[Rfam]
Rfam assigns this 84-nucleotide sequence from Bombyx mori to the family "mir-2807 microRNA precursor family". A search with the family's covariance model found it, with a score of 62 bits. On this family, see Liu et al., BMC Genomics 2010: "MicroRNAs of Bombyx mori identified by Solexa sequencing".
RNA sequence: UUAACUCAUAUUUGUAUGGAGUUGGAACAGCGCCCCUAGCGGCAAACGCAGGCAAACGUCCCAACUCCAUACUAAUGUGAGUUA
Numbered sequence: 001u002u003a004a005c006u007c008a009u010a011u012u013u014g015u016a017u018g019g020a021g022u023u024g025g026a027a028c029a030g031c032g033c034c035c036c037u038a039g040c041g042g043c044a045a046a047c048g049c050a051g052g053c054a055a056a057c058g059u060c061c062c063a064a065c066u067c068c069a070u071a072c073u074a075a076u077g078u079g080a081g082u083u084a
Base pairs, nucleotide, nucleotide: 008078009077010076011075012074014072015071016070018068020066021065022064023063024062025061027059028058034052035051039047
Gene Ontology terms of the family: miRNA-mediated post-transcriptional gene silencing and RISC complex. Taxonomically the source falls in Bombyx (Eukaryota, Protostomia, Mandibulata, Hexapoda).